[Rfam]
RNA sequence: UAGUAGAUGCACCCUUAUAACUAACUUCCCUGGUUGGCUGCCACCACUAGGGAAUUUUUUA
Numbered sequence: 001u002a003g004u005a006g007a008u009g010c011a012c013c014c015u016u017a018u019a020a021c022u023a024a025c026u027u028c029c030c031u032g033g034u035u036g037g038c039u040g041c042c043a044c045c046a047c048u049a050g051g052g053a054a055u056u057u058u059u060u061a
Stems, first nucleotide, its partner, number of pairs: 003012002027053007035046003

The family of this 61-nucleotide RNA from Atlanticothrix silvestris is "Nitrogen stress-induced RNA 1". The organism belongs to Atlanticothrix silvestris, within Bacteria. By type it is a small RNA. Pairs were carried over by alignment from the consensus structure.